[Rfam]
RNA sequence: UUGUAGGUCUUGGUGUGAUGGCGGGGAGGUUUUAGUCGGUAGGCGCCGAACCGAACUUCGGUUCGGGACGGUGAAUCCGACACUACCCGGGGUGGUUUCUCGGAUGUCUUUUGAAGAUUUCCUCCCCGACAA
Numbered sequence: 001u002u003g004u005a006g007g008u009c010u011u012g013g014u015g016u017g018a019u020g021g022c023g024g025g026g027a028g029g030u031u032u033u034a035g036u037c038g039g040u041a042g043g044c045g046c047c048g049a050a051c052c053g054a055a056c057u058u059c060g061g062u063u064c065g066g067g068a069c070g071g072u073g074a075a076u077c078c079g080a081c082a083c084u085a086c087c088c089g090g091g092g093u094g095g096u097u098u099c100u101c102g103g104a105u106g107u108c109u110u111u112u113g114a115a116g117a118u119u120u121c122c123u124c125c126c127c128g129a130c131a132a
Stems, first nucleotide, its partner, number of pairs: 001132004022128008035081005044073005052065005083106001086103002